Overview:
The family of this 86-nucleotide sequence from Legionella tucsonensis is "t44 RNA". It is annotated as a small RNA. The organism belongs to Legionella, within Bacteria.
RNA sequence: AAGGUCGCGCUUUAAAUACACACACGUUUCGACACAUACGAUAGGGUCCCUGAAGGGGUUUCGUAUGGGAGGCGUGGAGGAAUAAC
Numbered sequence: 001a002a003g004g005u006c007g008c009g010c011u012u013u014a015a016a017u018a019c020a021c022a023c024a025c026g027u028u029u030c031g032a033c034a035c036a037u038a039c040g041a042u043a044g045g046g047u048c049c050c051u052g053a054a055g056g057g058g059u060u061u062c063g064u065a066u067g068g069g070a071g072g073c074g075u076g077g078a079g080g081a082a083u084a085a086c
Stems, first nucleotide, its partner, number of pairs: 023076008035067007043059001048058004

From the family's description: This family consists of a number of bacterial RNA genes of between 135 and 170 bases in length. The t44 gene has been identified in several species of enteric bacteria but homologs have also been identified in Pseudomonas and Coxiella species.